The record is a 301-nucleotide RNA sequence, which matches "RAGATH-15 RNA" in Rfam.
Rfam's curators put it in the seed alignment.

RNA sequence: AGGGUAGCUCCCUAUUCUUAGCUAAGGCAAACUAAGAGCACAUAUUGAUCGUGUGUAGCAAAUCCACAUAACAACUGUAUUGCGGCAGUCGGUAUGGAUGGGACAUAGGUAGUAUAAUCAAGUGCCUAUGCAAGUAUUACUAUUUUCCAGGACGGCACACCCUCCUGCGAAAAGUAGAUAAUCAGAUUCAAAUACAAUGCCAAGAAAUUGUUUGAAUCCCUAUACAAUUGAAACCAGUCUUGGCUGGGAGUAGAAUCGCAAAUCUACUCUAAUUUACUAUGGGUUGAAAAUCCCUGGGCCC
Numbered sequence: 001a002g003g004g005u006a007g008c009u010c011c012c013u014a015u016u017c018u019u020a021g022c023u024a025a026g027g028c029a030a031a032c033u034a035a036g037a038g039c040a041c042a043u044a045u046u047g048a049u050c051g052u053g054u055g056u057a058g059c060a061a062a063u064c065c066a067c068a069u070a071a072c073a074a075c076u077g078u079a080u081u082g083c084g085g086c087a088g089u090c091g092g093u094a095u096g097g098a099u100g101g102g103a104c105a106u107a108g109g110u111a112g113u114a115u116a117a118u119c120a121a122g123u124g125c126c127u128a129u130g131c132a133a134g135u136a137u138u139a140c141u142a143u144u145u146u147c148c149a150g151g152a153c154g155g156c157a158c159a160c161c162c163u164c165c166u167g168c169g170a171a172a173a174g175u176a177g178a179u180a181a182u183c184a185g186a187u188u189c190a191a192a193u194a195c196a197a198u199g200c201c202a203a204g205a206a207a208u209u210g211u212u213u214g215a216a217u218c219c220c221u222a223u224a225c226a227a228u229u230g231a232a233a234c235c236a237g238u239c240u241u242g243g244c245u246g247g248g249a250g251u252a253g254a255a256u257c258g259c260a261a262a263u264c265u266a267c268u269c270u271a272a273u274u275u276a277c278u279a280u281g282g283g284u285u286g287a288a289a290a291u292c293c294c295u296g297g298g299c300c301c
Stems, first nucleotide, its partner, number of pairs: 001013004016037006038056006068095003072091001074089005100220004104130008136182004143173005148167005187216008234247004248269007281294003